[Rfam]
RNA sequence: UUGCUGUGAUGACCUCUUAGGACACCUUUGGAUGACCCAUGAAAACAAACUGUUAUAAUCUGAGCGAC
Numbered sequence: 001u002u003g004c005u006g007u008g009a010u011g012a013c014c015u016c017u018u019a020g021g022a023c024a025c026c027u028u029u030g031g032a033u034g035a036c037c038c039a040u041g042a043a044a045a046c047a048a049a050c051u052g053u054u055a056u057a058a059u060c061u062g063a064g065c066g067a068c
Stems, first nucleotide, its partner, number of pairs: 001067004
Dot-bracket structure: ((((...........................................................)))).

A member of the RNA family "Small nucleolar RNA SNORD58" from Parambassis ranga, 68 nucleotides long. By type it is a C/D-box small nucleolar RNA. The family has 33 seed sequences and 2,484 matches in Rfam 15.1. Its Rfam clan is "SNORD58 clan". Rfam describes the family as follows. snoRNA U58 is found in introns 1, 3 and 6 of the ribosomal protein RPL17 gene in humans. The source organism's lineage runs through Eukaryota, Chordata, Neopterygii, Neoteleostei and Parambassis.